[Rfam]
RNA sequence: UGCCCAGUGCUCUGAAUGUCAAAGUGAAGAAAUUCAACCAAGCGCGGGUAAACGGCGGGAGUAACUAUGACUCUCUUAACACAUAGACGUGUAUGUGUGUGGACCAAAGAGCACGCUGCCUUUGGAGGGUCACAAUAGCGGCGCGAAAGCGAAUGCGAAUGACCGCUAGUGCGUCCGUCGUCAGCCUCUCUCUGUUGUUGCUGGACGGACGCGCGACACCAUCAAAUUGCGGGGACACCCUGAUAGCCUUGUCUACCAAGUCGCCUGCGGAAACGCACUGGCGAUGGCCGAGUUAAUCGCCCUGGGUACGGUAACAACGACAAGGAUGUGUGUGUUAUGGGCAAUCCGCAGCCAAGUCCUACGUCGAACCGCGCACGUUCGAUACGGAUGCUGUCCAUCGACUAAAUGGUGGUGGGUGAUCGCGCCACACGCGAUUGCUUAAGAUAUAGUCAGGCCCUGGUGAGAGCCAGCUGCAUUUAUAAGAGGGGGCGCCCACGAGAGAGGGACGCUCGCCUCGAAGCUUGCAGGAGGGUGGUGCCACUGUAUGUGUGUGCGCCCUUGGAGUUCGAACAGCUCUUAAGGUAGCCAAAUGCCUC
Numbered sequence: 001u002g003c004c005c006a007g008u009g010c011u012c013u014g015a016a017u018g019u020c021a022a023a024g025u026g027a028a029g030a031a032a033u034u035c036a037a038c039c040a041a042g043c044g045c046g047g048g049u050a051a052a053c054g055g056c057g058g059g060a061g062u063a064a065c066u067a068u069g070a071c072u073c074u075c076u077u078a079a080c081a082c083a084u085a086g087a088c089g090u091g092u093a094u095g096u097g098u099g100u101g102g103a104c105c106a107a108a109g110a111g112c113a114c115g116c117u118g119c120c121u122u123u124g125g126a127g128g129g130u131c132a133c134a135a136u137a138g139c140g141g142c143g144c145g146a147a148a149g150c151g152a153a154u155g156c157g158a159a160u161g162a163c164c165g166c167u168a169g170u171g172c173g174u175c176c177g178u179c180g181u182c183a184g185c186c187u188c189u190c191u192c193u194g195u196u197g198u199u200g201c202u203g204g205a206c207g208g209a210c211g212c213g214c215g216a217c218a219c220c221a222u223c224a225a226a227u228u229g230c231g232g233g234g235a236c237a238c239c240c241u242g243a244u245a246g247c248c249u250u251g252u253c254u255a256c257c258a259a260g261u262c263g264c265c266u267g268c269g270g271a272a273a274c275g276c277a278c279u280g281g282c283g284a285u286g287g288c289c290g291a292g293u294u295a296a297u298c299g300c301c302c303u304g305g306g307u308a309c310g311g312u313a314a315c316a317a318c319g320a321c322a323a324g325g326a327u328g329u330g331u332g333u334g335u336u337a338u339g340g341g342c343a344a345u346c347c348g349c350a351g352c353c354a355a356g357u358c359c360u361a362c363g364u365c366g367a368a369c370c371g372c373g374c375a376c377g378u379u380c381g382a383u384a385c386g387g388a389u390g391c392u393g394u395c396c397a398u399c400g401a402c403u404a405a406a407u408g409g410u411g412g413u414g415g416g417u418g419a420u421c422g423c424g425c426c427a428c429a430c431g432c433g434a435u436u437g438c439u440u441a442a443g444a445u446a447u448a449g450u451c452a453g454g455c456c457c458u459g460g461u462g463a464g465a466g467c468c469a470g471c472u473g474c475a476u477u478u479a480u481a482a483g484a485g486g487g488g489g490c491g492c493c494c495a496c497g498a499g500a501g502a503g504g505g506a507c508g509c510u511c512g513c514c515u516c517g518a519a520g521c522u523u524g525c526a527g528g529a530g531g532g533u534g535g536u537g538c539c540a541c542u543g544u545a546u547g548u549g550u551g552u553g554c555g556c557c558c559u560u561g562g563a564g565u566u567c568g569a570a571c572a573g574c575u576c577u578u579a580a581g582g583u584a585g586c587c588a589a590a591u592g593c594c595u596c
Stems, first nucleotide, its partner, number of pairs: 002056003007053002009049004014045001017044003025036004057075006076581001
RNA: Eukaryotic large subunit ribosomal RNA, nucleotides 2397 to 2992
Organism: Plasmodiophora brassicae